Rfam assigns this 182-nucleotide RNA from Bacillus sp. MUM 116 to the family "c-di-AMP riboswitch aptamer (ydaO/yuaA leader)". The match comes from Rfam's covariance-model search (99 bits). The organism belongs to Bacillus, within Bacteria.
[Rfam]
RNA sequence: UUUUUUGAAUCGCUGAGUUCCACAUGGGAACGGGGGAACCAUCAUCGAAAAGUUUUUGAUUUUUCUAGAAACCAAAACUUUUCUAUGGGGUGAAUCUUAAUAAAGAUACUUGUCUUUUUAAGUAGGGUGACUCUUACAUCCGAAUCCGUCAGCUAACCUCGUAAGCGUAUUGAAGAGAUGUU
Dot-bracket structure: ..........((((...(((......)))((((((....((............................................))(((.....((((...................))))..((((.........))))...))).........)))))).))))...............
Numbered sequence: 001u002u003u004u005u006u007g008a009a010u011c012g013c014u015g016a017g018u019u020c021c022a023c024a025u026g027g028g029a030a031c032g033g034g035g036g037a038a039c040c041a042u043c044a045u046c047g048a049a050a051a052g053u054u055u056u057u058g059a060u061u062u063u064u065c066u067a068g069a070a071a072c073c074a075a076a077a078c079u080u081u082u083c084u085a086u087g088g089g090g091u092g093a094a095u096c097u098u099a100a101u102a103a104a105g106a107u108a109c110u111u112g113u114c115u116u117u118u119u120a121a122g123u124a125g126g127g128u129g130a131c132u133c134u135u136a137c138a139u140c141c142g143a144a145u146c147c148g149u150c151a152g153c154u155a156a157c158c159u160c161g162u163a164a165g166c167g168u169a170u171u172g173a174a175g176a177g178a179u180g181u182u
Stems, first nucleotide, its partner, number of pairs: 011167004018029003030162006040087002088147003096122004125141004